[Rfam]
Nucleotides: 385
Stems, first nucleotide, its partner, number of pairs: 015129006022028002029122006040092003043058006074089005096112003140194005147161005168186003173181002261281001263278001265276003
Number, partner (000 for none) and nucleotide at each position: 001000u002000a003000c004000a005000u006000u007000u008000c009000a010000c011000u012000c013000c014000a015129g016128a017127c018126c019125c020124u021000c022028g023027c024000u025000a026000a027023g028022c029122u030121c031120c032119u033118g034117a035000g036000a037000a038000a039000c040092g041091c042090c043058a044057g045056g046055u047054a048053a049000a050000c051000g052000u053048u054047u055046g056045c057044c058043u059000a060000c061000a062000c063000a064000c065000a066000c067000c068000c069000u070000a071000a072000u073000c074089g075088c076087a077086a078085c079000a080000u081000c082000a083000g084000g085078g086077u087076u088075g089074c090042g091041g092040c093000a094000c095000g096112c097111c098110g099000g100000a101000a102000a103000a104000a105000c106000g107000a108000c109000a110098c111097g112096g113000a114000a115000c116000g117034u118033c119032a120031g121030g122029a123000a124020g125019g126018g127017g128016u129015c130000a131000a132000u133000g134000g135000c136000c137000g138000u139000u140194a141193c142192g143191c144190u145000a146000a147161u148160u149159c150158a151157g152000u153000a154000a155000g156000c157151c158150u159149g160148g161147a162000a163000u164000u165000u166000u167000g168186u169185c170184u171000g172000a173181u174180c175000u176000u177000g178000a179000g180174g181173a182000a183000a184170a185169g186168g187000g188000g189000a190144a191143g192142c193141g194140u195000u196000a197000a198000a199000a200000a201000c202000a203000g204000u205000u206000a207000u208000c209000a210000a211000u212000a213000u214000a215000a216000a217000a218000c219000a220000u221000g222000a223000g224000a225000g226000a227000u228000u229000u230000u231000u232000g233000u234000g235000c236000g237000g238000g239000a240000a241000u242000g243000u244000g245000c246000a247000a248000a249000a250000a251000u252000g253000c254000g255000c256000u257000c258000u259000c260000u261281u262000u263278u264000u265276u266275u267274a268000g269000a270000g271000a272000g273000a274267u275266a276265g277000a278263a279000a280000a281261a282000g283000g284000g285000g286000a287000a288000a289000g290000c291000c292000c293000a294000a295000u296000g297000a298000c299000a300000a301000a302000a303000g304000a305000c306000c307000g308000g309000a310000a311000a312000u313000u314000u315000u316000c317000g318000u319000u320000g321000a322000u323000u324000a325000c326000u327000a328000c329000a330000c331000u332000a333000a334000c335000g336000u337000u338000c339000u340000g341000g342000g343000c344000g345000u346000g347000a348000u349000u350000g351000u352000c353000g354000c355000a356000g357000g358000u359000g360000g361000a362000u363000u364000a365000a366000c367000g368000g369000c370000c371000g372000c373000u374000c375000u376000g377000c378000a379000c380000u381000g382000a383000u384000u385000u

Annotation: The record is a 385-nucleotide RNA sequence from Salmonella enterica, which matches "Enterobacterial sRNA STnc550" in Rfam. The organism belongs to Salmonella enterica subsp. enterica serovar Paratyphi B, within Bacteria. It is one of the family's seed sequences. Pairs were carried over by alignment from the consensus structure, which was predicted with CMfinder. The family's RNA type in Rfam is small RNA.